A member of the RNA family "BsrC" from Cohnella thailandensis, 88 nucleotides long. Rfam classes the family as a small RNA. Taxonomically the source falls in Cohnella (Bacteria, Bacillota, Caryophanales, Paenibacillaceae).
[Rfam]
RNA sequence: CUUCACGAAGACAACGAUAGCCCUACCUCUCGAUCGUUCUUGCGGUUCCGAGACCGCUCCAGUUGAGAAUUCGCGUUCCUUCCAGCAG
Numbered sequence: 001c002u003u004c005a006c007g008a009a010g011a012c013a014a015c016g017a018u019a020g021c022c023c024u025a026c027c028u029c030u031c032g033a034u035c036g037u038u039c040u041u042g043c044g045g046u047u048c049c050g051a052g053a054c055c056g057c058u059c060c061a062g063u064u065g066a067g068a069a070u071u072c073g074c075g076u077u078c079c080u081u082c083c084a085g086c087a088g
Stems, first nucleotide, its partner, number of pairs: 034068002039062002042057006

The family's consensus secondary structure was predicted with CMfinder. About the family: The 301 nucleotide sequence from Kouji Nakamura has been trimmed to a highly conserved ~85 nucleotide long core to form this family.